[Rfam]
RNA sequence: AAUGAUGCCUGACAACGAAAGGUAGCACGCAUGUACACAACCAUGGCCUGUGCAUGAUUGCAAACAAGCGUGCUCUCUCUCGCUGUCAGACAAUU
Numbered sequence: 001a002a003u004g005a006u007g008c009c010u011g012a013c014a015a016c017g018a019a020a021g022g023u024a025g026c027a028c029g030c031a032u033g034u035a036c037a038c039a040a041c042c043a044u045g046g047c048c049u050g051u052g053c054a055u056g057a058u059u060g061c062a063a064a065c066a067a068g069c070g071u072g073c074u075c076u077c078u079c080u081c082g083c084u085g086u087c088a089g090a091c092a093a094u095u
Stems, first nucleotide, its partner, number of pairs: 010088005016082002020078002025073006032066003
A member of the RNA family "MIR535 microRNA precursor family" from Turnera subulata, 95 nucleotides long. Pairs were carried over by alignment from the consensus structure, which was predicted with RNAalifold. Taxonomically the source falls in Turnera (Eukaryota, Tracheophyta, Gunneridae, rosids). Gene Ontology terms of the family: miRNA-mediated post-transcriptional gene silencing and RISC complex.